[Rfam]
RNA sequence: CCCCCAAGGGGAAGCGAAGACCCUAUGGAGCUUUACUGCAGGCUGUUGCUGGGACAUGGUCGCUAAUGUGCAGAGUAGGUAGGAGCCGUUACAGAGGUACCCGCGCUAGCGGGCCACCCAGGCACACAUGAAACACUACCCGUUAGUGACUGUGACCCUCACUCCGGGAGGAGGACACCAAUAGCCGGGCAGUUUGACUGGGGCGGUACGCGCUUGAAAGAAUAUCGAGCGCGCCCUAAGGCCAUCUCAGCCGUGUCGGAGACGCGGCGAAGAGCGCAAGAGCAUAAGAUGGCUUGACAGUGUCCUGCCCAACGAGGGACGCUGACGCGAAAGCGUGGUCUAGCGAACCAAUGCGCCCGCCCGAUGCGGGCCAUUGAUGACAGAAAAGCUACCCUAGGGAUAACAGAGUCGUCACUCGCAAGAGCACAUAUCGACCGAGUGGCUUGCUACCUCGAUGUCGGUUCCCUCCAUCCUGCCCGUGCAGCAGCGGGCAAGGGUGAGGUUGUUCGCCUAUUAAAGGAGGUCGUGAGCUGGGUUUAGACCGUCGUGAGACAGGUCGGCUGCUAUCUAUUGGGGGUGUCA
Numbered sequence: 001c002c003c004c005c006a007a008g009g010g011g012a013a014g015c016g017a018a019g020a021c022c023c024u025a026u027g028g029a030g031c032u033u034u035a036c037u038g039c040a041g042g043c044u045g046u047u048g049c050u051g052g053g054a055c056a057u058g059g060u061c062g063c064u065a066a067u068g069u070g071c072a073g074a075g076u077a078g079g080u081a082g083g084a085g086c087c088g089u090u091a092c093a094g095a096g097g098u099a100c101c102c103g104c105g106c107u108a109g110c111g112g113g114c115c116a117c118c119c120a121g122g123c124a125c126a127c128a129u130g131a132a133a134c135a136c137u138a139c140c141c142g143u144u145a146g147u148g149a150c151u152g153u154g155a156c157c158c159u160c161a162c163u164c165c166g167g168g169a170g171g172a173g174g175a176c177a178c179c180a181a182u183a184g185c186c187g188g189g190c191a192g193u194u195u196g197a198c199u200g201g202g203g204c205g206g207u208a209c210g211c212g213c214u215u216g217a218a219a220g221a222a223u224a225u226c227g228a229g230c231g232c233g234c235c236c237u238a239a240g241g242c243c244a245u246c247u248c249a250g251c252c253g254u255g256u257c258g259g260a261g262a263c264g265c266g267g268c269g270a271a272g273a274g275c276g277c278a279a280g281a282g283c284a285u286a287a288g289a290u291g292g293c294u295u296g297a298c299a300g301u302g303u304c305c306u307g308c309c310c311a312a313c314g315a316g317g318g319a320c321g322c323u324g325a326c327g328c329g330a331a332a333g334c335g336u337g338g339u340c341u342a343g344c345g346a347a348c349c350a351a352u353g354c355g356c357c358c359g360c361c362c363g364a365u366g367c368g369g370g371c372c373a374u375u376g377a378u379g380a381c382a383g384a385a386a387a388g389c390u391a392c393c394c395u396a397g398g399g400a401u402a403a404c405a406g407a408g409u410c411g412u413c414a415c416u417c418g419c420a421a422g423a424g425c426a427c428a429u430a431u432c433g434a435c436c437g438a439g440u441g442g443c444u445u446g447c448u449a450c451c452u453c454g455a456u457g458u459c460g461g462u463u464c465c466c467u468c469c470a471u472c473c474u475g476c477c478c479g480u481g482c483a484g485c486a487g488c489g490g491g492c493a494a495g496g497g498u499g500a501g502g503u504u505g506u507u508c509g510c511c512u513a514u515u516a517a518a519g520g521a522g523g524u525c526g527u528g529a530g531c532u533g534g535g536u537u538u539a540g541a542c543c544g545u546c547g548u549g550a551g552a553c554a555g556g557u558c559g560g561c562u563g564c565u566a567u568c569u570a571u572u573g574g575g576g577g578u579g580u581c582a
Stems, first nucleotide, its partner, number of pairs: 001577007010569003014564002022398004027394002029390005035193004042185007051158003055154014078140005085123003100113005162173004196209001197207003210232006235338002241293006247273002250268006274283002298324009326335001328333001349376005355371005407448003411445001412442007422432002459534001460532004464526001465523005472497002476491005500512004540558004544553003
The record is a 582-nucleotide part of an RNA from Halorientalis sp. IM1011, which matches "Archaeal large subunit ribosomal RNA" in Rfam. Clan: LSU clan. Lineage of the source: Archaea > Methanobacteriota > Halobacteriales > Haloarculaceae > Halorientalis. Rfam links the family to the GO terms structural constituent of ribosome and ribosome. A search with the family's covariance model found it, with a score of 2837 bits. The base pairs follow the family's consensus structure, which is taken from published work.